[Rfam]
Small nucleolar RNA SNORA5: a 121-nucleotide RNA sequence from Terrapene triunguis.
Its family is annotated with nucleolus and RNA processing in the Gene Ontology.
Rfam's curators write: ACA5 is a member of the H/ACA class of snoRNA that guide the sites of modification of uridines to pseudouridines.
Pairs were carried over by alignment from the consensus structure, which was predicted with RNAfold.
It scores 35 bits against the family's covariance model.
Clan: SNORA5 clan.
Nucleotides: 121
Stems, first nucleotide, its partner, number of pairs: 002053002005050001018046009028036001064113001066111004077099005
Number, partner (000 for none) and nucleotide at each position: 001000a002053c003052u004000c005050a006000u007000a008000u009000u010000g011000c012000c013000a014000a015000a016000u017000u018046u019045a020044g021043a022042a023041c024040a025039c026038a027000c028036u029000c030000u031000a032000a033000g034000a035000u036028a037000a038026u039025g040024u041023g042022u043021u044020c045019u046018a047000g048000a049000u050005u051000u052003a053002g054000c055000a056000c057000a058000g059000a060000a061000c062000u063000u064113g065000a066111a067110a068109c069108u070000g071000u072000u073000g074000g075000g076000g077099c078098u079097c080096a081095g082000u083000u084000u085000c086000c087000g088000u089000u090000a091000a092000g093000a094000u095081c096080u097079g098078g099077g100000a101000a102000a103000a104000c105000u106000u107000g108069a109068g110067u111066u112000c113064u114000g115000g116000a117000c118000u119000g120000c121000u